The family of this 137-nucleotide sequence from Nothobranchius furzeri is "Small nucleolar RNA SNORA22". The family's consensus secondary structure was predicted with RNAfold. Taxonomically the source falls in Nothobranchius (Eukaryota, Opisthokonta, Chordata, Clupeocephala). Its family is annotated with nucleolus and RNA processing in the Gene Ontology.
RNA sequence: UUGCACAGUGAACACCCAAGGAUGCUAACAUGGCUCUCUCUGGCCUUUAGUGUCUGUGCUAACAUCAACUCUGGUCUGUUCCUCUGCAUUAGGAGAGUUUAGUCUCUCCUAUAUGUAUUCAGCUGAUCAGAACAAAC
Numbered sequence: 001u002u003g004c005a006c007a008g009u010g011a012a013c014a015c016c017c018a019a020g021g022a023u024g025c026u027a028a029c030a031u032g033g034c035u036c037u038c039u040c041u042g043g044c045c046u047u048u049a050g051u052g053u054c055u056g057u058g059c060u061a062a063c064a065u066c067a068a069c070u071c072u073g074g075u076c077u078g079u080u081c082c083u084c085u086g087c088a089u090u091a092g093g094a095g096a097g098u099u100u101a102g103u104c105u106c107u108c109c110u111a112u113a114u115g116u117a118u119u120c121a122g123c124u125g126a127u128c129a130g131a132a133c134a135a136a137c
Base pairs, nucleotide, nucleotide: 003059004058005057006056007055008054010053013050016043017042018041020039022037024034025033026032062077064075065074066073067072084122085121086120087115088114089113091110092109093108094107095106096105097104
Dot-bracket structure: ..((((((.(..(..(((.(.(.(((.....)))..).).)))......)..)))))))..(.((((....)))).)......((((((.(((((((......)))))))..)))....)))...............